[Rfam]
RNA sequence: AUCGAUUCUCAGCUCUGAGAACUGAAUUCCAUGGGUUGUACCUGGAUCUGCUGUCAGACCCGUGGGGCUCAGUUCUUCAGCUUGGAUGUUUCUG
Numbered sequence: 001a002u003c004g005a006u007u008c009u010c011a012g013c014u015c016u017g018a019g020a021a022c023u024g025a026a027u028u029c030c031a032u033g034g035g036u037u038g039u040a041c042c043u044g045g046a047u048c049u050g051c052u053g054u055c056a057g058a059c060c061c062g063u064g065g066g067g068c069u070c071a072g073u074u075c076u077u078c079a080g081c082u083u084g085g086a087u088g089u090u091u092c093u094g
Stems, first nucleotide, its partner, number of pairs: 008085002011082003018076008033061004
RNA: mir-146 microRNA precursor family
Organism: Sakesphorus luctuosus